[Rfam]
RNA: mir-30 microRNA precursor family
Organism: Silurus meridionalis
Nucleotides: 080
Stems, first nucleotide, its partner, number of pairs: 002079005008073012023060010
Number, partner (000 for none) and nucleotide at each position: 001000g002079g003078a004077g005076g006075u007000g008073c009072u010071g011070u012069a013068a014067a015066c016065a017064u018063c019062c020000u021000u022000g023060a024059c025058u026057g027056g028055a029054a030053g031052c032051u033000g034000g035000g036000a037000g038000u039000a040000a041000g042000g043000c044000c045000a046000g047000u048000a049000a050000a051032g052031g053030c054029u055028u056027u057026c058025a059024g060023u061000c062019g063018g064017a065016u066015g067014u068013u069012u070011g071010c072009a073008g074000c075006a076005u077004c078003u079002u080000g